RNA sequence: ACCUUAUCAAGAGUGGUCGAGGGACGGGCCCUAUGAAGCCACAGCAACCGGUUGGUAUCCAAUGUCAGGUGCUAAAUCCCGCCUUUUUAUAAGGAAAGAUAAGGC
Numbered sequence: 001a002c003c004u005u006a007u008c009a010a011g012a013g014u015g016g017u018c019g020a021g022g023g024a025c026g027g028g029c030c031c032u033a034u035g036a037a038g039c040c041a042c043a044g045c046a047a048c049c050g051g052u053u054g055g056u057a058u059c060c061a062a063u064g065u066c067a068g069g070u071g072c073u074a075a076a077u078c079c080c081g082c083c084u085u086u087u088u089a090u091a092a093g094g095a096a097a098g099a100u101a102a103g104g105c
Base pairs, nucleotide, nucleotide: 002104003103004102005101006100007099008098013042014041015040016039017038021031022030023029025081026080027079028078043073044072045071046070048069049068050066051065052064077097082094083093084092085091

Shown here is a 105-nucleotide RNA from Calditerrivibrio nitroreducens, a member of the family "SAM riboswitch aptamer (S box leader)". It scores 85 bits against the family's covariance model.